[Rfam]
RNA sequence: GUAUUCUUCGCGAAUGAACCAGAUCCUGAACGCACUUCGACGUCGCCGCUCACCGCUUCCCUAGGGAUGCCGCUGGCUCGUCAUGCAUUCGCGUUCACGGUUCGGUAAUACUUGAGCGCACGAAAUGAAGCCACGGACAUUCCGUGGCUUUUGU
Numbered sequence: 001g002u003a004u005u006c007u008u009c010g011c012g013a014a015u016g017a018a019c020c021a022g023a024u025c026c027u028g029a030a031c032g033c034a035c036u037u038c039g040a041c042g043u044c045g046c047c048g049c050u051c052a053c054c055g056c057u058u059c060c061c062u063a064g065g066g067a068u069g070c071c072g073c074u075g076g077c078u079c080g081u082c083a084u085g086c087a088u089u090c091g092c093g094u095u096c097a098c099g100g101u102u103c104g105g106u107a108a109u110a111c112u113u114g115a116g117c118g119c120a121c122g123a124a125a126u127g128a129a130g131c132c133a134c135g136g137a138c139a140u141u142c143c144g145u146g147g148c149u150u151u152u153g154u
Stems, first nucleotide, its partner, number of pairs: 005123002008120001009093005031085002038080003042077003045073002048070002053065001127151010
Rfam assigns this 154-nucleotide RNA from Candidatus Burkholderia verschuerenii to the family "Burkholderia sRNA 7". A reference for the family is Ghosh et al. (2017), "Identification of novel small RNAs in Burkholderia cenocepacia KC-01 expressed under iron limitation and oxidative stress conditions", Microbiology. The organism belongs to Burkholderia, within Bacteria. Rfam's curators write: Did not show any change in expression in iron-depletion and hydrogen peroxide (oxidative stress) treatment. Constitutively expressed. Possibly targets the GTPase, ObgE. The family's RNA type in Rfam is small RNA.